MIR2655 microRNA precursor family: a 162-nucleotide RNA sequence from Medicago truncatula. A search with the family's covariance model found it, with a score of 143 bits. Taxonomically the source falls in Medicago (Eukaryota, Embryophyta, Gunneridae, Pentapetalae).
Nucleotides: 162
Stems, first nucleotide, its partner, number of pairs: 002160001005157004023139003027135003031131013045117003
Number, partner (000 for none) and nucleotide at each position: 001000c002160c003000a004000a005157u006156a007155a008154g009000u010000a011000a012000u013000a014000a015000a016000a017000u018000g019000u020000c021000u022000g023139u024138u025137u026000a027135a028134g029133u030000c031131c032130c033129u034128u035127a036126a037125c038124u039123u040122u041121a042120u043119u044000u045117a046116a047115a048000g049000u050000a051000u052000c053000a054000g055000u056000u057000u058000g059000a060000u061000c062000c063000u064000u065000u066000u067000u068000g069000u070000u071000a072000a073000u074000u075000u076000a077000a078000u079000u080000a081000a082000a083000a084000a085000a086000a087000c088000g089000u090000u091000a092000a093000g094000u095000u096000u097000a098000a099000g100000a101000g102000a103000c104000c105000a106000a107000a108000c109000c110000g111000u112000u113000a114000c115047u116046u117045u118000a119043a120042a121041u122040a123039a124038a125037g126036u127035u128034a129033a130032g131031g132000g133029a134028c135027u136000u137025a138024a139023a140000c141000g142000a143000a144000c145000c146000u147000u148000u149000u150000a151000u152000u153000a154008c155007u156006u157005a158000c159000a160002g161000a162000u